[Rfam]
Nucleotides: 070
Base pairs, nucleotide, nucleotide: 004066005065006064007063009061010060011059013057014056015055017053018051019050020049021048022047023046025044026043027042
Number, partner (000 for none) and nucleotide at each position: 001000g002000g003000u004066a005065u006064u007063g008000g009061c010060c011059c012000a013057a014056c015055g016000u017053g018051a019050g020049c021048a022047u023046u024000g025044a026043c027042u028000u029000g030000a031000c032000u033000a034000u035000u036000g037000g038000a039000g040000u041000c042027a043026g044025u045000a046023a047022g048021u049020g050019c051018u052000a053017c054000u055015u056014g057013u058000u059011g060010g061009g062000g063007c064006g065005g066004u067000u068000g069000u070000a
A member of the RNA family "miR-430 microRNA precursor family" from Collichthys lucidus, 70 nucleotides long. Clan: mir-290 clan. The base pairs follow the family's consensus structure, which was predicted with RNAalifold.